[Rfam]
RNA sequence: CAAUUGCCAUAACUCCGAGCUUGCUGCACUAAGUUCCUGAUCUUGGCCAAGGGUCUGUGACGGGGAUAGGUGAGUUAAGCCAGUGACAGGUUGUCACCAGGGUCGAUAAAGAAAUGCAUCGGCCUCCCAUAUUUGGAAAGGUGUUCCGUGGCGAAACAA
Numbered sequence: 001c002a003a004u005u006g007c008c009a010u011a012a013c014u015c016c017g018a019g020c021u022u023g024c025u026g027c028a029c030u031a032a033g034u035u036c037c038u039g040a041u042c043u044u045g046g047c048c049a050a051g052g053g054u055c056u057g058u059g060a061c062g063g064g065g066a067u068a069g070g071u072g073a074g075u076u077a078a079g080c081c082a083g084u085g086a087c088a089g090g091u092u093g094u095c096a097c098c099a100g101g102g103u104c105g106a107u108a109a110a111g112a113a114a115u116g117c118a119u120c121g122g123c124c125u126c127c128c129a130u131a132u133u134u135g136g137a138a139a140g141g142u143g144u145u146c147c148g149u150g151g152c153g154a155a156a157c158a159a
Stems, first nucleotide, its partner, number of pairs: 011145003015141002019080005025074001027072003033067007083097005100125008110115001126136002
RNA: Molybdenum/Tungsten riboswitch aptamer (Moco RNA motif)